Shown here is an 86-nucleotide RNA from Acyrthosiphon pisum, a member of the family "bantam microRNA precursor family". Pairs were carried over by alignment from the consensus structure, which was predicted with RNAalifold. Clan: mir-81 clan. Gene Ontology terms of the family: miRNA-mediated post-transcriptional gene silencing and RISC complex.

RNA sequence: UAUUUGAUGCGAAGCUGGUUUUCACUUUGAUCUGUCAGAUUUAUCAUUGUUCAUUCUGAGAUCAUUGUGAAAGCUAAUUUCGUAAC
Numbered sequence: 001u002a003u004u005u006g007a008u009g010c011g012a013a014g015c016u017g018g019u020u021u022u023c024a025c026u027u028u029g030a031u032c033u034g035u036c037a038g039a040u041u042u043a044u045c046a047u048u049g050u051u052c053a054u055u056c057u058g059a060g061a062u063c064a065u066u067g068u069g070a071a072a073g074c075u076a077a078u079u080u081c082g083u084a085a086c
Stems, first nucleotide, its partner, number of pairs: 009083006016076010028064006
Dot-bracket structure: ........((((((.((((((((((..((((((.........................))))))..)))))))))).))))))...